[Rfam]
RNA sequence: GUCAUCGGCCGGACGGUCGCGAGCGGCGACGCUCGAGGAAAGUCCGGGCUCCACAGGGCAGGCUGCCAGGUAACGCCUGGGCGCACCUCUUCGGGGGUGCGACGGACAGUGCCACAGAAAACACACCGCCGAUGGCCCCUCAGAAGACCGAGGGGAUCAGGCAAGGUUGAAAAGGCGGGUUAAGAGCCCACCGCGCGCCCGGUAACGGGCGUGGCAGGGUAAACCCCAGCCGGAGCAAGGCCAAAUAGGCGGCGAGAGACGGCCCGUCUCGUCAGCCGGUGUGUCAUUCCGGUGAAAGCCGGGAGCGCCAUCGGCACAGCCGCGGGUAGGCUGCUGGAGGGUCCGGGCGACCGGAUCCCGAGAGAAAUGACCGUCCGGUCUCCGUCGCGGCUCGCCGCGUCGGGGGCCGACAGGACCCGGCUUACAGGCCGGUGAUCGCA
Numbered sequence: 001g002u003c004a005u006c007g008g009c010c011g012g013a014c015g016g017u018c019g020c021g022a023g024c025g026g027c028g029a030c031g032c033u034c035g036a037g038g039a040a041a042g043u044c045c046g047g048g049c050u051c052c053a054c055a056g057g058g059c060a061g062g063c064u065g066c067c068a069g070g071u072a073a074c075g076c077c078u079g080g081g082c083g084c085a086c087c088u089c090u091u092c093g094g095g096g097g098u099g100c101g102a103c104g105g106a107c108a109g110u111g112c113c114a115c116a117g118a119a120a121a122c123a124c125a126c127c128g129c130c131g132a133u134g135g136c137c138c139c140u141c142a143g144a145a146g147a148c149c150g151a152g153g154g155g156a157u158c159a160g161g162c163a164a165g166g167u168u169g170a171a172a173a174g175g176c177g178g179g180u181u182a183a184g185a186g187c188c189c190a191c192c193g194c195g196c197g198c199c200c201g202g203u204a205a206c207g208g209g210c211g212u213g214g215c216a217g218g219g220u221a222a223a224c225c226c227c228a229g230c231c232g233g234a235g236c237a238a239g240g241c242c243a244a245a246u247a248g249g250c251g252g253c254g255a256g257a258g259a260c261g262g263c264c265c266g267u268c269u270c271g272u273c274a275g276c277c278g279g280u281g282u283g284u285c286a287u288u289c290c291g292g293u294g295a296a297a298g299c300c301g302g303g304a305g306c307g308c309c310a311u312c313g314g315c316a317c318a319g320c321c322g323c324g325g326g327u328a329g330g331c332u333g334c335u336g337g338a339g340g341g342u343c344c345g346g347g348c349g350a351c352c353g354g355a356u357c358c359c360g361a362g363a364g365a366a367a368u369g370a371c372c373g374u375c376c377g378g379u380c381u382c383c384g385u386c387g388c389g390g391c392u393c394g395c396c397g398c399g400u401c402g403g404g405g406g407c408c409g410a411c412a413g414g415a416c417c418c419g420g421c422u423u424a425c426a427g428g429c430c431g432g433u434g435a436u437c438g439c440a
Stems, first nucleotide, its partner, number of pairs: 001436010011425001012375007020035006040423003044420005049235004061231005066080005081103001082101008104226002109224002111220003126166002128162003133159003137155004174192002177189003193215001194213008239332004249323005339358008